[Rfam]
Bacterial RNase P class A: a 344-nucleotide sequence from Lachnospiraceae bacterium A10. The family's RNA type in Rfam is ribozyme. The source organism's lineage runs through Bacteria, Bacillota, Clostridia, Lachnospirales and Lachnospiraceae. Gene Ontology terms of the family: ribonuclease P activity, dimeric ribonuclease P complex and tRNA processing. Pairs were carried over by alignment from the consensus structure, which is taken from published work.
RNA sequence: AGAGUCUGUUAAGUGAUCGCGGCUGCAAGUGUCGAAAGACCGCAGGUGAGGAAAGUCCGGGCUUCACAGGGCAGGAUGCCGGAUAACGUCCGGUGGGGGUGACCCCAAGGAAAGUGCAACAGAAAUAAACCGCUGCUUAGGCAGUAAGGGUGGAAAGGCAGUGUAAGAGACUACCGCCCGUCUGGUAACAGGCGGGGCAUAUGUAAACCCCAUUCGAAGCAAGACCGAAACGGAGCAUUGACGUGGCCCGCCAGCUCCAGGUUGGUCGCUUGAAAUGGCUGGCGACAGUCAUUCUAGAUAGAUGAUCACUCUAGACAUAACCCGGCUCAUGACAGGCUCUUUUG
Numbered sequence: 001a002g003a004g005u006c007u008g009u010u011a012a013g014u015g016a017u018c019g020c021g022g023c024u025g026c027a028a029g030u031g032u033c034g035a036a037a038g039a040c041c042g043c044a045g046g047u048g049a050g051g052a053a054a055g056u057c058c059g060g061g062c063u064u065c066a067c068a069g070g071g072c073a074g075g076a077u078g079c080c081g082g083a084u085a086a087c088g089u090c091c092g093g094u095g096g097g098g099g100u101g102a103c104c105c106c107a108a109g110g111a112a113a114g115u116g117c118a119a120c121a122g123a124a125a126u127a128a129a130c131c132g133c134u135g136c137u138u139a140g141g142c143a144g145u146a147a148g149g150g151u152g153g154a155a156a157g158g159c160a161g162u163g164u165a166a167g168a169g170a171c172u173a174c175c176g177c178c179c180g181u182c183u184g185g186u187a188a189c190a191g192g193c194g195g196g197g198c199a200u201a202u203g204u205a206a207a208c209c210c211c212a213u214u215c216g217a218a219g220c221a222a223g224a225c226c227g228a229a230a231c232g233g234a235g236c237a238u239u240g241a242c243g244u245g246g247c248c249c250g251c252c253a254g255c256u257c258c259a260g261g262u263u264g265g266u267c268g269c270u271u272g273a274a275a276u277g278g279c280u281g282g283c284g285a286c287a288g289u290c291a292u293u294c295u296a297g298a299u300a301g302a303u304g305a306u307c308a309c310u311c312u313a314g315a316c317a318u319a320a321c322c323c324g325g326c327u328c329a330u331g332a333c334a335g336g337c338u339c340u341u342u343u344g
Stems, first nucleotide, its partner, number of pairs: 001340011012310007020048002023045004054327002057325005062219004069248002072245001074215005079093005094108001095106004109210002114208002116204003130149002132145005157175002160172003176198001177196008223267004232258005242250002274293008